RNA: mir-15 microRNA precursor family
Organism: Motacilla alba
RNA sequence: CCUUGAAGUGCUGUAGCAGCACAUCAUGGUUUGCAUGCUCUGCUCAGGGUGCAAAUCAUUAUUUGCUGCUGUAGGAAUUGAAGG
Number, nucleotide and partner (000 for none) at each position: 001c084002c083003u082004u081005g000006a079007a000008g000009u000010g000011c000012u000013g072014u071015a070016g069017c068018a067019g066020c065021a064022c000023a062024u061025c000026a059027u058028g057029g056030u055031u054032u053033g052034c051035a050036u049037g000038c000039u000040c000041u000042g000043c000044u000045c000046a000047g000048g000049g036050u035051g034052c033053a032054a031055a030056u029057c028058a027059u026060u000061a024062u023063u000064u021065g020066c019067u018068g017069c016070u015071g014072u013073a000074g000075g000076a000077a000078u000079u006080g000081a004082a003083g002084g001